[Rfam]
Shown here is a 76-nucleotide RNA sequence from Brachybacterium sp. UMB0905, a member of the family "ZMP/ZTP riboswitch aptamer (pfl RNA motif)".

RNA sequence: AUGGCCGCACACGACUGGCGCAGGUGGGUGACCACCGGGGAGUGACGCGCGCGCAUCGACCGCCUGGGUGCCGCGC
Numbered sequence: 001a002u003g004g005c006c007g008c009a010c011a012c013g014a015c016u017g018g019c020g021c022a023g024g025u026g027g028g029u030g031a032c033c034a035c036c037g038g039g040g041a042g043u044g045a046c047g048c049g050c051g052c053g054c055a056u057c058g059a060c061c062g063c064c065u066g067g068g069u070g071c072c073g074c075g076c
Stems, first nucleotide, its partner, number of pairs: 004048002010044003015039002017064004024035004053071005

NCBI's taxonomy places the organism under Bacteria, Actinomycetes, Micrococcales, Dermabacteraceae, Brachybacterium.
The family's consensus secondary structure is taken from published work.